Record summary:
This 162-nucleotide RNA from Blautia sp. OF03-15BH belongs to the Rfam family "Clostridiales-1 RNA".
[Rfam]
RNA sequence: UGAUACUAGGGUCAAAAGGUCAUGCGUUUCAUGCUUGCAUGAAAAAGCAUGACUUCUUGACCCGCAAAACACCGAAAAGUAGCCAUUUUUCGUAGAAAAAUAAGCGGAUUUGAGGUGUUUCAGGAUUGCGGGAGCAUGAAAUGCGGAGCAAUCUGUGUAUCA
Numbered sequence: 001u002g003a004u005a006c007u008a009g010g011g012u013c014a015a016a017a018g019g020u021c022a023u024g025c026g027u028u029u030c031a032u033g034c035u036u037g038c039a040u041g042a043a044a045a046a047g048c049a050u051g052a053c054u055u056c057u058u059g060a061c062c063c064g065c066a067a068a069a070c071a072c073c074g075a076a077a078a079g080u081a082g083c084c085a086u087u088u089u090u091c092g093u094a095g096a097a098a099a100a101u102a103a104g105c106g107g108a109u110u111u112g113a114g115g116u117g118u119u120u121c122a123g124g125a126u127u128g129c130g131g132g133a134g135c136a137u138g139a140a141a142u143g144c145g146g147a148g149c150a151a152u153c154u155g156u157g158u159a160u161c162a
Stems, first nucleotide, its partner, number of pairs: 001162006010062004017055009027045002029042005067120007076111003082105002085101007123154007134144004
A search with the family's covariance model found it, with a score of 108 bits. Taxonomically the source falls in Blautia (Bacteria, Bacillati, Clostridia, Lachnospirales).